The family of this 78-nucleotide sequence from Flavobacterium sp. A45 is "Flavo-1 RNA".
The base pairs follow the family's consensus structure, which is taken from published work.
A search with the family's covariance model found it, with a score of 68 bits.
[Rfam]
RNA sequence: GUCUAGCCCUGAUAGUAGCGACAUCUUUUUUUUGAUUUCUUUAGACAAGAAAAGAUAUAGCGAAUAGCAGGACACGAA
Numbered sequence: 001g002u003c004u005a006g007c008c009c010u011g012a013u014a015g016u017a018g019c020g021a022c023a024u025c026u027u028u029u030u031u032u033u034g035a036u037u038u039c040u041u042u043a044g045a046c047a048a049g050a051a052a053a054g055a056u057a058u059a060g061c062g063a064a065u066a067g068c069a070g071g072a073c074a075c076g077a078a
Stems, first nucleotide, its partner, number of pairs: 009070003013066002018061002023056004029051006036044001